[Rfam]
RNA sequence: GGAGUCGGCCAGACAGCCGCUGUCCUUGAAGGGGAUGGAGGAAAGUCCGGGCUCCACAGGGCAGGGUGCCAGGUAACGCCUGGGGGGCGCGAGCCCACGGAAAGUGCCACAGAAAAUAUACCGCCCCGGUGCGUCCGGGGUAAGGGUGAAAAGGUGCGGUAAGAGCGCACCGCGCUGGCGGUAACGCCAAGCGGCAGGGUAAACCCCAUCCGGAGCAAGACCAAAUAGGGGAGCAUUGGGUUCGCCCAGACGUGCGGCCCGCACGGCUCCCGGGUAGGUCGCUCGAGACGUACGGUGACGUAUGUCCCAGAUGAAUGGCUGUCCACGACAGAACCCGGCUUACCGGCCGACUCUUCUU
Numbered sequence: 001g002g003a004g005u006c007g008g009c010c011a012g013a014c015a016g017c018c019g020c021u022g023u024c025c026u027u028g029a030a031g032g033g034g035a036u037g038g039a040g041g042a043a044a045g046u047c048c049g050g051g052c053u054c055c056a057c058a059g060g061g062c063a064g065g066g067u068g069c070c071a072g073g074u075a076a077c078g079c080c081u082g083g084g085g086g087g088c089g090c091g092a093g094c095c096c097a098c099g100g101a102a103a104g105u106g107c108c109a110c111a112g113a114a115a116a117u118a119u120a121c122c123g124c125c126c127c128g129g130u131g132c133g134u135c136c137g138g139g140g141u142a143a144g145g146g147u148g149a150a151a152a153g154g155u156g157c158g159g160u161a162a163g164a165g166c167g168c169a170c171c172g173c174g175c176u177g178g179c180g181g182u183a184a185c186g187c188c189a190a191g192c193g194g195c196a197g198g199g200u201a202a203a204c205c206c207c208a209u210c211c212g213g214a215g216c217a218a219g220a221c222c223a224a225a226u227a228g229g230g231g232a233g234c235a236u237u238g239g240g241u242u243c244g245c246c247c248a249g250a251c252g253u254g255c256g257g258c259c260c261g262c263a264c265g266g267c268u269c270c271c272g273g274g275u276a277g278g279u280c281g282c283u284c285g286a287g288a289c290g291u292a293c294g295g296u297g298a299c300g301u302a303u304g305u306c307c308c309a310g311a312u313g314a315a316u317g318g319c320u321g322u323c324c325a326c327g328a329c330a331g332a333a334c335c336c337g338g339c340u341u342a343c344c345g346g347c348c349g350a351c352u353c354u355u356c357u358u
Stems, first nucleotide, its partner, number of pairs: 001354010012323007020038008043341003047338005052215004059260004064211005069083005084098001085096004099206002104204002106200003121145002123141007153171006172195001173193003176189005219280004229271006251265005287306008
Dot-bracket structure: ((((((((((.(((((((.((((((((...))))))))....[[[.[[[[[((((...[[[[.((((((((((.....)))))(((((....)))).)((...(((((............(((((((((.....)))))))..)).......((((((.......))))))(((((((((....))))).))).)..)))..)))))))))))))...((((......((((((................(((((.]]]]))))))))))).....))))......((((((((....))))))))..........)))))))..........]]]]]]]]...))))))))))....